[Rfam]
Rfam assigns this 72-nucleotide RNA sequence from Acaryochloris thomasi to the family "tRNA".
Pairs were carried over by alignment from the consensus structure, which is taken from published work.
The family's RNA type in Rfam is transfer RNA.
Its family is annotated with triplet codon-amino acid adaptor activity in the Gene Ontology.
Transfer RNA (tRNA) molecules are approximately 80 nucleotides in length.

RNA sequence: UGGGGCGUCGCCAAGCGGUAAGGCACCUGGUUUUGGUCCAGGCAUUCGGAGGUUCGAAUCCUUCCGCCCCAG
Numbered sequence: 001u002g003g004g005g006c007g008u009c010g011c012c013a014a015g016c017g018g019u020a021a022g023g024c025a026c027c028u029g030g031u032u033u034u035g036g037u038c039c040a041g042g043c044a045u046u047c048g049g050a051g052g053u054u055c056g057a058a059u060c061c062u063u064c065c066g067c068c069c070c071a072g
Stems, first nucleotide, its partner, number of pairs: 001071007010024003026042005048064005
Dot-bracket structure: (((((((..(((.........))).(((((.......))))).....(((((.......)))))))))))).